[Rfam]
Z30 small nucleolar RNA: a 97-nucleotide RNA sequence from Clupea harengus. On this family, see Galardi et al., Mol Cell Biol 2002: "Purified box C/D snoRNPs are able to reproduce site-specific 2'-O-methylation of target RNA in vitro". The source organism's lineage runs through Eukaryota, Deuterostomia, Gnathostomata, Clupeinae and Clupea. Rfam classes the family as a C/D-box small nucleolar RNA. Pairs were carried over by alignment from the consensus structure, which was predicted with PFOLD.
Nucleotides: 097
Stems, first nucleotide, its partner, number of pairs: 003095002039056003
Number, partner (000 for none) and nucleotide at each position: 001000u002000g003095g004094c005000a006000u007000u008000g009000a010000u011000g012000a013000g014000a015000u016000u017000a018000g019000a020000u021000u022000g023000g024000g025000u026000c027000u028000g029000a030000a031000c032000u033000g034000g035000u036000a037000u038000u039056g040055u041054u042000c043000c044000c045000u046000a047000c048000g049000g050000g051000g052000u053000a054041a055040a056039c057000u058000c059000u060000g061000a062000c063000c064000a065000g066000g067000c068000u069000a070000u071000g072000u073000g074000g075000a076000c077000a078000g079000c080000a081000a082000u083000c084000u085000u086000c087000u088000c089000g090000c091000u092000g093000a094004g095003c096000u097000g